The family of this 97-nucleotide sequence from Nicotiana tabacum is "Plastid-rps12 3UTR RNA". Taxonomically the source falls in Nicotiana (Eukaryota, Gunneridae, Pentapetalae, lamiids). A reference for the family is Richter et al. (2023), "Retrograde signaling in plants: A critical review focusing on the GUN pathway and beyond", Plant Commun. The match comes from Rfam's covariance-model search (88 bits). The family has 1,299 seed sequences and 1,710 matches in Rfam 15.1.

RNA sequence: GGUUUCGAUUGGUGUAAAUUCAAUCACUAGAAUUUAAGAUGAUAAGAAAUGAUCUAUUGGUAACAAAUAGCUACCUAUUAAGCAAAGAAAAUCUUAU
Numbered sequence: 001g002g003u004u005u006c007g008a009u010u011g012g013u014g015u016a017a018a019u020u021c022a023a024u025c026a027c028u029a030g031a032a033u034u035u036a037a038g039a040u041g042a043u044a045a046g047a048a049a050u051g052a053u054c055u056a057u058u059g060g061u062a063a064c065a066a067a068u069a070g071c072u073a074c075c076u077a078u079u080a081a082g083c084a085a086a087g088a089a090a091a092u093c094u095u096a097u
Stems, first nucleotide, its partner, number of pairs: 009023004053086001055084001056078002059075004064070001
Notes: The family's RNA type in Rfam is cis-regulatory element. Plastid rpl20 is a non-coding RNA (ncRNA) recognised in plastids. It was found in the three prime untranslated region (3UTR) of rps12 gene, its 3UTR location sugest a role in transcript maduration.